[Rfam]
RNA sequence: UCUGGGCAGCGUAGCGACUGCCUGUAACCCGAGCGGGAGUAAGAGAGAUGGGAGCUGUGGCUCUCGCAGAGGACCGCUGGGAUCAUGUCGAAGGCACGUCCACUCGAAGCGUGGAGUCUCUGGUUCGGGCUCCUUGGCGGAAGCGAGGGGAGUCUGGGGGGAUAAUGUGGAGGGCACAGCGUGAGGCGGGCGACCGAGCAGCGAUCACUUCUCGCUCUUCGCAGUCGAGGGACAGCGUGCUUGAAUGCUUACCAGCGAUCAUCCGACGUGAGGAGCUUCCUGCAACCUCUCUCUG
Numbered sequence: 001u002c003u004g005g006g007c008a009g010c011g012u013a014g015c016g017a018c019u020g021c022c023u024g025u026a027a028c029c030c031g032a033g034c035g036g037g038a039g040u041a042a043g044a045g046a047g048a049u050g051g052g053a054g055c056u057g058u059g060g061c062u063c064u065c066g067c068a069g070a071g072g073a074c075c076g077c078u079g080g081g082a083u084c085a086u087g088u089c090g091a092a093g094g095c096a097c098g099u100c101c102a103c104u105c106g107a108a109g110c111g112u113g114g115a116g117u118c119u120c121u122g123g124u125u126c127g128g129g130c131u132c133c134u135u136g137g138c139g140g141a142a143g144c145g146a147g148g149g150g151a152g153u154c155u156g157g158g159g160g161g162a163u164a165a166u167g168u169g170g171a172g173g174g175c176a177c178a179g180c181g182u183g184a185g186g187c188g189g190g191c192g193a194c195c196g197a198g199c200a201g202c203g204a205u206c207a208c209u210u211c212u213c214g215c216u217c218u219u220c221g222c223a224g225u226c227g228a229g230g231g232a233c234a235g236c237g238u239g240c241u242u243g244a245a246u247g248c249u250u251a252c253c254a255g256c257g258a259u260c261a262u263c264c265g266a267c268g269u270g271a272g273g274a275g276c277u278u279c280c281u282g283c284a285a286c287c288u289c290u291c292u293c294u295g
Stems, first nucleotide, its partner, number of pairs: 002039002004023006028037003042294007050287002054283002057279001059277006065270003071264003075257006082250001086244001092242008100231002103229005109222003113218005119161003124158012138145002169212005178205001180203003187196003